[Rfam]
RNA sequence: GUUCCUUUUUCCUAUGCAUAUACUUCUUUGAGGGUCUGGCCUGAAGAGGUGUAAGGCAUGGGAAAAGGGGG
Numbered sequence: 001g002u003u004c005c006u007u008u009u010u011c012c013u014a015u016g017c018a019u020a021u022a023c024u025u026c027u028u029u030g031a032g033g034g035u036c037u038g039g040c041c042u043g044a045a046g047a048g049g050u051g052u053a054a055g056g057c058a059u060g061g062g063a064a065a066a067g068g069g070g071g
Stems, first nucleotide, its partner, number of pairs: 008065010019053003023049008